[Rfam]
A member of the RNA family "Ribosomal protein L20 leader" from Exobacillus caeni, 121 nucleotides long. Gene Ontology term of the family: regulation of gene expression. About the family: This family is a putative r-protein leader autoregulatory structure found in B. subtilis and other low-GC Gram-positive bacteria. It is located in the 5' untranslated regions of mRNAs encoding initiation factor 3 followed by ribosomal proteins L35 and L20 (infC-rpmI-rplT). A Rho-independent transcription terminator structure that is probably involved in regulation is included at the 3' end. A reference for the family is Zengel and Lindahl (1994), "Diverse mechanisms for regulating ribosomal protein synthesis in Escherichia coli", Prog Nucleic Acid Res Mol Biol.
RNA sequence: CAAAGCAAGCAGAAGCGCCCGCUUCUCACCUGAUCGACGCAUCAACUGUAGUUGCCAGGUUGGAAAUUUCCUGUUCGGAGAAUAGUGUGGGCGAAGUAUGCGCCGACGCUUUUUUUAAUUG
Numbered sequence: 001c002a003a004a005g006c007a008a009g010c011a012g013a014a015g016c017g018c019c020c021g022c023u024u025c026u027c028a029c030c031u032g033a034u035c036g037a038c039g040c041a042u043c044a045a046c047u048g049u050a051g052u053u054g055c056c057a058g059g060u061u062g063g064a065a066a067u068u069u070c071c072u073g074u075u076c077g078g079a080g081a082a083u084a085g086u087g088u089g090g091g092c093g094a095a096g097u098a099u100g101c102g103c104c105g106a107c108g109c110u111u112u113u114u115u116u117a118a119u120u121g
Stems, first nucleotide, its partner, number of pairs: 011026006028060003036053003039049002086108003090104004095099001